[Rfam]
This 90-nucleotide RNA from Erinaceus europaeus belongs to the Rfam family "Small nucleolar RNA SNORD86". The source organism's lineage runs through Eukaryota, Deuterostomia, Theria, Erinaceidae and Erinaceus. U86 belongs to the C/D family of snoRNAs. It is the human orthologue of Xenopus laevis U86 and has no identified RNA target. A search with the family's covariance model found it, with a score of 67 bits. Rfam links the family to the GO terms nucleolus and RNA processing. On this family, see Filippini et al., Biochem Biophys Res Commun 2001: "U86, a novel snoRNA with an unprecedented gene organization in yeast". Rfam 15.1 lists 274 matches to the family in 139 species.
RNA sequence: AAUCAUGGUGAUGGCUAACCAGGACUCCCUGACCUAUACUGAUCACUGCUAUCUAUGGGAGUGACGGCCAGUUCUGGUGUCUGAGUGAUU
Dot-bracket structure: ((((((...(((.....(((((((((((.(.((.(...(.(............)..).).)).).))..))))))))))))...))))))